[Rfam]
RNA: Bacterial RNase P class A
RNA sequence: GGAGAGGACCAGGCGAUCGCCGCCCGCCGCGGCCUAUGGCUGCGGCGGGGGGAGGAAAGUCCGGGCUCCGCAGGGCGGGAUGGUCCCUAACGGGGACCGGGGGCGACCCCAGGGAUAGUGCCACAGAGAGCAGACCGCCCGUCAUGGCCCAGGCCGUGACGGGUAAGGGUGAAAGGGUGAGGUAAGAGCUCACCAGAUCCGGCGGUGACGGCGGAUGCUAGGUAAACCCCAUCCGGAGCAAGGCCUAAUAGGGGAGCGCUUGAGGACGGCCCGUCCGAAGCUCCCGGGUUGGCUGCUUGAGGGCGUCGGCAACGGCGCUCCUAGAGGAAUGAUCGUCGCCCCGCCCAGGGUAACCGGGGCGGGGAACAGAACCCGGCUUACGGGCCUCUCCGACC
Numbered sequence: 001g002g003a004g005a006g007g008a009c010c011a012g013g014c015g016a017u018c019g020c021c022g023c024c025c026g027c028c029g030c031g032g033c034c035u036a037u038g039g040c041u042g043c044g045g046c047g048g049g050g051g052g053a054g055g056a057a058a059g060u061c062c063g064g065g066c067u068c069c070g071c072a073g074g075g076c077g078g079g080a081u082g083g084u085c086c087c088u089a090a091c092g093g094g095g096a097c098c099g100g101g102g103g104c105g106a107c108c109c110c111a112g113g114g115a116u117a118g119u120g121c122c123a124c125a126g127a128g129a130g131c132a133g134a135c136c137g138c139c140c141g142u143c144a145u146g147g148c149c150c151a152g153g154c155c156g157u158g159a160c161g162g163g164u165a166a167g168g169g170u171g172a173a174a175g176g177g178u179g180a181g182g183u184a185a186g187a188g189c190u191c192a193c194c195a196g197a198u199c200c201g202g203c204g205g206u207g208a209c210g211g212c213g214g215a216u217g218c219u220a221g222g223u224a225a226a227c228c229c230c231a232u233c234c235g236g237a238g239c240a241a242g243g244c245c246u247a248a249u250a251g252g253g254g255a256g257c258g259c260u261u262g263a264g265g266a267c268g269g270c271c272c273g274u275c276c277g278a279a280g281c282u283c284c285c286g287g288g289u290u291g292g293c294u295g296c297u298u299g300a301g302g303g304c305g306u307c308g309g310c311a312a313c314g315g316c317g318c319u320c321c322u323a324g325a326g327g328a329a330u331g332a333u334c335g336u337c338g339c340c341c342c343g344c345c346c347a348g349g350g351u352a353a354c355c356g357g358g359g360c361g362g363g364g365a366a367c368a369g370a371a372c373c374c375g376g377c378u379u380a381c382g383g384g385c386c387u388c389u390c391c392g393a394c395c
Base pairs, nucleotide, nucleotide: 001391002390003389004388005387006386007385009383010382012337013336014335015334016333017332018331020052021051023049024048025047026046027045028044029043030042031041032040057379058378059377061376062375063374064373065372066238067237068236069235073272074271075270076269078234079233080232081231082230083097084096085095086094087093098112099110100109101108102107113229114228118227119226120223121222122221135168136167137164138163139162140161141160142159143158144157145156146155147154148153176194177193178192179191180190181189196218197216198215199214200213201212203210204209242294243293244292245291252285253284254283255282256281257280264276265275266274267273301320302319303318304317305316306315307314308313